[Rfam]
The family of this 72-nucleotide RNA sequence from Suricata suricatta is "Small nucleolar RNA SNORD73".
Rfam links the family to the GO terms nucleolus and RNA processing.
Rfam 15.1 lists 769 matches to the family in 586 species.
For this family Rfam cites "A novel snoRNA (U73) is encoded within the introns of the human and mouse ribosomal protein S3a genes" (Rebane et al., Gene, 1998).
The family's consensus secondary structure was predicted with PFOLD.
Lineage of the source: Eukaryota > Bilateria > Mammalia > Carnivora > Suricata.
Rfam classes the family as a C/D-box small nucleolar RNA.
RNA sequence: AACAGGUGAUGACAAAAUGUUUCGGUCCCAGAUGAUGUUCACUGAUUAAAAUGUUAACGUUUUUCUGAUGUU
Numbered sequence: 001a002a003c004a005g006g007u008g009a010u011g012a013c014a015a016a017a018u019g020u021u022u023c024g025g026u027c028c029c030a031g032a033u034g035a036u037g038u039u040c041a042c043u044g045a046u047u048a049a050a051a052u053g054u055u056a057a058c059g060u061u062u063u064u065c066u067g068a069u070g071u072u
Stems, first nucleotide, its partner, number of pairs: 001072004
Dot-bracket structure: ((((................................................................))))